[Rfam]
RNA: nhaA-I RNA
RNA sequence: GGGUGCCCUUCCCGGUGCCGCGCCCCGCAGCGCCGGUGAAGAUGGCAGGUCGUCGCGCAGGUCGGGCCGCCGCG
Numbered sequence: 001g002g003g004u005g006c007c008c009u010u011c012c013c014g015g016u017g018c019c020g021c022g023c024c025c026c027g028c029a030g031c032g033c034c035g036g037u038g039a040a041g042a043u044g045g046c047a048g049g050u051c052g053u054c055g056c057g058c059a060g061g062u063c064g065g066g067c068c069g070c071c072g073c074g
Stems, first nucleotide, its partner, number of pairs: 005046003008041003056074003060071003